Rfam assigns this 133-nucleotide RNA sequence from Lysobacter sp. N42 to the family "Ribosomal S15 leader". Taxonomically the source falls in Lysobacter (Bacteria, Pseudomonadati, Pseudomonadota, Lysobacteraceae). Its Rfam clan is "Ribosomal Protein S15 Leader clan". Rfam's curators write: The E. coli Ribosomal S15 gene 5' UTR can form two alternative structures. One that is a series of three hairpins, The other includes a pseudoknot. This structure causes translational regulation of the S15 protein.

RNA sequence: UACUGGGGCUAAAUUAGUGAUUGGCUUCAGUUGACUUAAACGCAAGCACACUCUUGCAUAUUUUUUGGAGUAAGUUAUGUCACUAACUGCUGAACAGAAAGCACAAGUUGUUAAAGAUUUUGCACAAGGCGAA
Dot-bracket structure: ......((((((........))))))......................................((((.(..........).))))...............................................